[Rfam]
Description:
The record is a 46-nucleotide RNA from Streptomyces sp. QHH-9511, which matches "L31-Actinobacteria ribosomal protein leader" in Rfam. Taxonomically the source falls in Streptomyces (Bacteria, Bacillati, Kitasatosporales, Streptomycetaceae). A search with the family's covariance model found it, with a score of 48 bits.
RNA sequence: UCGGCCCCGGUUCACGCAUGUGCAUCCCGCACGGCGACCCGGUGCC
Numbered sequence: 001u002c003g004g005c006c007c008c009g010g011u012u013c014a015c016g017c018a019u020g021u022g023c024a025u026c027c028c029g030c031a032c033g034g035c036g037a038c039c040c041g042g043u044g045c046c
Stems, first nucleotide, its partner, number of pairs: 003046003007042004015036003019033005
Dot-bracket structure: ..(((.((((....(((.(((((.....))))))))..)))).)))
Overview:
The literature on the family includes a 2020 paper in BMC Microbiol by Eckert and Weinberg, "Discovery of 20 novel ribosomal leader candidates in bacteria and archaea".